Plant small nucleolar RNA R71: a 111-nucleotide RNA from Populus trichocarpa.
Taxonomically the source falls in Populus (Eukaryota, Embryophyta, Magnoliopsida, Pentapetalae).
By type it is a C/D-box small nucleolar RNA.
On this family, see Brown et al., Trends Plant Sci 2003: "Plant snoRNAs: functional evolution and new modes of gene expression".
It scores 41 bits against the family's covariance model.
RNA sequence: AAACCAUUAUGAGGACAUGUAUUAAGCAAGUCUUUAUAUCUAUCCCAACACUUGUAAAAUGUUUCUCCUGAUUUUUGAGUGAAAAUGGUGAUUUGUCUUUUGAAAGAGUUU
Numbered sequence: 001a002a003a004c005c006a007u008u009a010u011g012a013g014g015a016c017a018u019g020u021a022u023u024a025a026g027c028a029a030g031u032c033u034u035u036a037u038a039u040c041u042a043u044c045c046c047a048a049c050a051c052u053u054g055u056a057a058a059a060u061g062u063u064u065c066u067c068c069u070g071a072u073u074u075u076u077g078a079g080u081g082a083a084a085a086u087g088g089u090g091a092u093u094u095g096u097c098u099u100u101u102g103a104a105a106g107a108g109u110u111u
Base pairs, nucleotide, nucleotide: 001111003109004108005102006101057074058073060071